[Rfam]
RNA sequence: UUCUUUCGGGUCUGUAGUUGCGGAGGCGAAAACCUCCAAGUCCAUGGCAGAUGCGGUCGAAAGGAUCCACGUAAACCGGGUGGGCAACCGCUCGGCGAGCACGGCGCGUUCUAGGAGUAAGACGCAUCGUCCGUUUACACGCGACAUGGUGCCGCGGCGGGCGAGAGGGUGAUGGUGAACAGCUCAGCCCCAAUGCGCGGGUGUGGGGUCGAAGACUAGGUCAGCCGGAGGAA
Dot-bracket structure: (((((((((..((((((((........................((([..((((((.]........((........(.((...........)).).......[))))))))............(((((((((((((....................))))))))...((((....((.....))...))))..)))))....)))......]..)))))...))))))))))))
Background:
This 233-nucleotide RNA belongs to the Rfam family "raiA RNA". The family's RNA type in Rfam is riboswitch.